[Rfam]
RNA: Small nucleolar RNA R44/J54/Z268 family
Organism: Hibiscus syriacus
RNA sequence: AGUGCAAGUGAUGACAGAAAUAGACAGGGACUCUGCACUCCCAUCUCUGGGUGUUUGAUGACUUCGUCUUUAAUGGGAAUCUCUCUGAUGCACA
Number, nucleotide and partner (000 for none) at each position: 001a000002g093003u092004g091005c090006a089007a000008g000009u000010g000011a000012u000013g000014a000015c000016a000017g000018a000019a000020a000021u000022a000023g000024a000025c000026a000027g000028g000029g000030a000031c000032u000033c000034u000035g000036c000037a000038c000039u000040c000041c000042c000043a000044u000045c000046u000047c000048u000049g000050g000051g000052u000053g000054u000055u000056u000057g000058a000059u000060g000061a000062c000063u000064u000065c000066g000067u000068c000069u000070u000071u000072a000073a000074u000075g000076g000077g000078a000079a000080u000081c000082u000083c000084u000085c000086u000087g000088a000089u006090g005091c004092a003093c002094a000